[Rfam]
Nucleotides: 116
Stems, first nucleotide, its partner, number of pairs: 010019003021039006050072006057065002074086004099116006
Number, partner (000 for none) and nucleotide at each position: 001000g002000u003000a004000u005000g006000g007000g008000u009000c010019a011018c012017c013000g014000c015000a016000a017012g018011g019010u020000u021039u022038c023037u024036g025035g026034g027000c028000g029000u030000u031000a032000a033000c034026c035025c036024c037023a038022g039021a040000c041000a042000u043000u044000a045000c046000a047000a048000u049000g050072c051071g052070u053069g054068g055067c056000c057065c058064g059000c060000c061000u062000g063000g064058c065057g066000a067055g068054c069053c070052a071051u072050g073000a074086g075085c076084g077083g078000c079000a080000a081000c082000g083077c084076c085075g086074c087000u088000a089000g090000c091000a092000u093000c094000a095000a096000c097000c098000c099116g100115c101114c102113g103112g104111u105000g106000u107000c108000g109000a110000u111104a112103c113102c114101g115100g116099c

Description:
The record is a 116-nucleotide sequence from Pseudomonas sp. SDI, which matches "Pseudomon-groES RNA" in Rfam. Rfam classes the family as a cis-regulatory element. The source organism's lineage runs through Bacteria, Pseudomonadati, Gammaproteobacteria, Pseudomonadaceae and Pseudomonas.